The family of this 85-nucleotide RNA sequence from Eubacterium sp. CAG:202 is "pan motif".

[Rfam]
RNA sequence: UGGAUAGUAUUCGCUUUGAAACUGUACCACUUUAUAUUUUUACUAUUAUCCGUUCGCCUGUAUCCGCUCGGAACAGGACUAUACG
Numbered sequence: 001u002g003g004a005u006a007g008u009a010u011u012c013g014c015u016u017u018g019a020a021a022c023u024g025u026a027c028c029a030c031u032u033u034a035u036a037u038u039u040u041u042a043c044u045a046u047u048a049u050c051c052g053u054u055c056g057c058c059u060g061u062a063u064c065c066g067c068u069c070g071g072a073a074c075a076g077g078a079c080u081a082u083a084c085g
Stems, first nucleotide, its partner, number of pairs: 001029003004025005010020002054081001056079001057077005063072003

Pairs were carried over by alignment from the consensus structure, which is taken from published work. A search with the family's covariance model found it, with a score of 42 bits. Lineage of the source: Bacteria > Bacillati > Clostridia > Eubacteriales > Eubacterium. It is annotated as a cis-regulatory element.